RNA sequence: UCGGCGAGUAGAAGCGGUUAGGGCCCACCGGGCCCGGGACAUUGCUCGGCAU
Numbered sequence: 001u002c003g004g005c006g007a008g009u010a011g012a013a014g015c016g017g018u019u020a021g022g023g024c025c026c027a028c029c030g031g032g033c034c035c036g037g038g039a040c041a042u043u044g045c046u047c048g049g050c051a052u
Base pairs, nucleotide, nucleotide: 005048006047007046008045009044010043015037018039019038021035022034023033024032025031026030
The family of this 52-nucleotide sequence is "Xanthine riboswitch aptamer (NMT1 RNA)". Gene Ontology term of the family: purine nucleobase binding. Pairs were carried over by alignment from the consensus structure, which is taken from published work. The literature on the family includes a 2020 paper in RNA by Yu and Breaker, "A bacterial riboswitch class senses xanthine and uric acid to regulate genes associated with purine oxidation".